[Rfam]
RNA sequence: CAUUGUCUUCACGAGUCUGUACGCGAUAUUGAAAUCGUUCGCCUCGUGUGAGGCUAAGG
Dot-bracket structure: (.(.((((.((((((.(.(.(((............))).)).))))))..)))).).).
RNA: mir-8229 microRNA precursor family
Organism: Pristionchus pacificus